[Rfam]
The family of this 76-nucleotide RNA sequence from Nocardioides sp. JS614 is "Actino-pnp RNA". Taxonomically the source falls in Nocardioides (Bacteria, Bacillati, Propionibacteriales, Nocardioidaceae). It is one of the family's seed sequences.
RNA sequence: CUCGGUCCUCGGUAGUGGCUCUCAGCAUCCGGCCGGCUCUGCCGCGCAGAUCUGCGGGCCUCGAUCGAAGACCGGC
Numbered sequence: 001c002u003c004g005g006u007c008c009u010c011g012g013u014a015g016u017g018g019c020u021c022u023c024a025g026c027a028u029c030c031g032g033c034c035g036g037c038u039c040u041g042c043c044g045c046g047c048a049g050a051u052c053u054g055c056g057g058g059c060c061u062c063g064a065u066c067g068a069a070g071a072c073c074g075g076c
Base pairs, nucleotide, nucleotide: 002075003074004073005072006071007070009068010067011066012065013064017060018059019058020057021056023054024053025052027051028050029049